TPP riboswitch aptamer (THI element): a 100-nucleotide RNA sequence from Photobacterium damselae. Pairs were carried over by alignment from the consensus structure, which is taken from published work. NCBI's taxonomy places the organism under Bacteria, Pseudomonadota, Vibrionales, Vibrionaceae, Photobacterium damselae subsp. damselae.

[Rfam]
RNA sequence: UAACGUUAGUCGGGGAGCCUUUAGGCUGAGAUCACGUAAGUGGGACCCGUUGAACCUGAACCAGUUAAUACUGGCGUAGUGGAACUAACGGAUACCCAAU
Numbered sequence: 001u002a003a004c005g006u007u008a009g010u011c012g013g014g015g016a017g018c019c020u021u022u023a024g025g026c027u028g029a030g031a032u033c034a035c036g037u038a039a040g041u042g043g044g045a046c047c048c049g050u051u052g053a054a055c056c057u058g059a060a061c062c063a064g065u066u067a068a069u070a071c072u073g074g075c076g077u078a079g080u081g082g083a084a085c086u087a088a089c090g091g092a093u094a095c096c097c098a099a100u
Stems, first nucleotide, its partner, number of pairs: 006088005011049004017026003033042003055081001056079003061074004
Dot-bracket structure: .....(((((((((..(((....)))......(((....)))...)))).....((((..((((......))))..))).)..)))))............